The record is a 56-nucleotide RNA sequence from Brassica rapa, which matches "Plastid-ccsA-ndhD-1 3UTR RNA" in Rfam. Plastid-ccsA-ndhD-1 is a non-coding RNA (ncRNA) recognised in plastids. It was found in the three prime untranslated region (3UTR) of ccsA and ndhD genes, its 3UTR location suggests a role in transcript maturation.
RNA sequence: UAAUUUUUCAAAACCUUUUGAAUCAAGUAGUACAAUGAUUCAAAAGGUUCUAACAA
Numbered sequence: 001u002a003a004u005u006u007u008u009c010a011a012a013a014c015c016u017u018u019u020g021a022a023u024c025a026a027g028u029a030g031u032a033c034a035a036u037g038a039u040u041c042a043a044a045a046g047g048u049u050c051u052a053a054c055a056a
Stems, first nucleotide, its partner, number of pairs: 008053001010051001012049014
Clan: Plastid-ccsA_ndhD 3UTR RNA clan.